RNA sequence: AGCAAUGUGUUCAAAAUAGCAAAGGCCAUUUUAUCUAAAAGCCAUUUUUAGAUAAAAUGGCCUUUGCUAUUUUGAACACAUUGCU
Numbered sequence: 001a002g003c004a005a006u007g008u009g010u011u012c013a014a015a016a017u018a019g020c021a022a023a024g025g026c027c028a029u030u031u032u033a034u035c036u037a038a039a040a041g042c043c044a045u046u047u048u049u050a051g052a053u054a055a056a057a058u059g060g061c062c063u064u065u066g067c068u069a070u071u072u073u074g075a076a077c078a079c080a081u082u083g084c085u
Stems, first nucleotide, its partner, number of pairs: 002084005008078015024062005032054004037046002